The family of this 66-nucleotide RNA from Galemys pyrenaicus is "Selenocysteine insertion sequence 1". Pairs were carried over by alignment from the consensus structure, which is taken from published work. From the family's description: The incorporation of selenocysteine into a protein sequence is directed by an in-frame UGA codon (usually a stop codon) within the coding region of the mRNA. Selenoprotein mRNAs contain a conserved secondary structure in the 3' UTR that is required for the distinction of UGA stop from UGA selenocysteine. The selenocysteine insertion sequence (SECIS) is around 60 nt in length and adopts a hairpin structure which is sufficiently well-defined and conserved to act as a computational screen for selenoprotein genes. Lineage of the source: Eukaryota > Metazoa > Tetrapoda > Eutheria > Galemys. A reference for the family is Walczak et al. (1996), "A novel RNA structural motif in the selenocysteine insertion element of eukaryotic selenoprotein mRNAs", RNA. By type it is a cis-regulatory element.

[Rfam]
RNA sequence: CCGGCGCCCGUGACGGUCUGCCCACAAACCAGCGUGCUGGCGAGGCAGACCUGAGAACCUGGCGUG
Numbered sequence: 001c002c003g004g005c006g007c008c009c010g011u012g013a014c015g016g017u018c019u020g021c022c023c024a025c026a027a028a029c030c031a032g033c034g035u036g037c038u039g040g041c042g043a044g045g046c047a048g049a050c051c052u053g054a055g056a057a058c059c060u061g062g063c064g065u066g
Stems, first nucleotide, its partner, number of pairs: 001066001004063002015051008030039003